[Rfam]
RNA sequence: AUUGGUCCUCGGUGGUGGCUUACGGAUUUUUACAAGAACGCCGUGGGCUUCGAUCGAAGAUCCAU
Numbered sequence: 001a002u003u004g005g006u007c008c009u010c011g012g013u014g015g016u017g018g019c020u021u022a023c024g025g026a027u028u029u030u031u032a033c034a035a036g037a038a039c040g041c042c043g044u045g046g047g048c049u050u051c052g053a054u055c056g057a058a059g060a061u062c063c064a065u
Stems, first nucleotide, its partner, number of pairs: 001065002004062004009057005017049009027038003